This 84-nucleotide sequence from Desulfosporosinus metallidurans belongs to the Rfam family "c-di-GMP-I-GGC riboswitch aptamer". NCBI's taxonomy places the organism under Bacteria, Bacillati, Eubacteriales, Desulfitobacteriaceae, Desulfosporosinus. Gene Ontology term of the family: cyclic-di-GMP binding.
Nucleotides: 084
Base pairs, nucleotide, nucleotide: 001084003081004080011036012035016031017030018029019028020027021026034070039077040076041075042074044073045072046071047068048067049066
Number, partner (000 for none) and nucleotide at each position: 001084a002000u003081u004080g005000a006000g007000a008000a009000a010000g011036g012035c013000a014000a015000a016031c017030u018029c019028g020027g021026u022000g023000a024000a025000a026021g027020c028019c029018g030017g031016g032000g033000a034070c035012g036011c037000a038000a039077a040076g041075c042074u043000a044073c045072g046071g047068g048067u049066c050000u051000u052000c053000c054000a055000c056000u057000u058000a059000g060000g061000g062000u063000g064000a065000u066049g067048a068047u069000a070034g071046c072045c073044g074042a075041g076040c077039u078000a079000c080004c081003a082000a083000u084001u